RNA sequence: UAGGGUGUGAGGAGUGCAAAACACCUCUUCAGGGUCGAAACAAGGACAGACUCCUGAACGUGUUCCACA
Numbered sequence: 001u002a003g004g005g006u007g008u009g010a011g012g013a014g015u016g017c018a019a020a021a022c023a024c025c026u027c028u029u030c031a032g033g034g035u036c037g038a039a040a041c042a043a044g045g046a047c048a049g050a051c052u053c054c055u056g057a058a059c060g061u062g063u064u065c066c067a068c069a
Base pairs, nucleotide, nucleotide: 020064021063022062023061024060029057030056031055032054033053034051035050036049
RNA: Cyano-1 RNA
Organism: Synechococcus sp. CC9902